About this RNA: SAM riboswitch aptamer (S box leader): a 108-nucleotide RNA from Shouchella clausii. Pairs were carried over by alignment from the consensus structure, which is taken from published work. Rfam's curators put it in the seed alignment. Its family is annotated with regulation of gene expression in the Gene Ontology.
RNA sequence: CUUUUAUCCAGAGAUGGCGGAGGGACAGGCCCGAAGAAGCCCAGCAACCAACACGUAACGUGUAAAGGUGCUAACCUGCAGAAUGCUCGGCGUUCUGGAAGAUAAGAG
Numbered sequence: 001c002u003u004u005u006a007u008c009c010a011g012a013g014a015u016g017g018c019g020g021a022g023g024g025a026c027a028g029g030c031c032c033g034a035a036g037a038a039g040c041c042c043a044g045c046a047a048c049c050a051a052c053a054c055g056u057a058a059c060g061u062g063u064a065a066a067g068g069u070g071c072u073a074a075c076c077u078g079c080a081g082a083a084u085g086c087u088c089g090g091c092g093u094u095c096u097g098g099a100a101g102a103u104a105a106g107a108g
Stems, first nucleotide, its partner, number of pairs: 001108008013042001016041003022032003026078004043072004048068002051063003079097006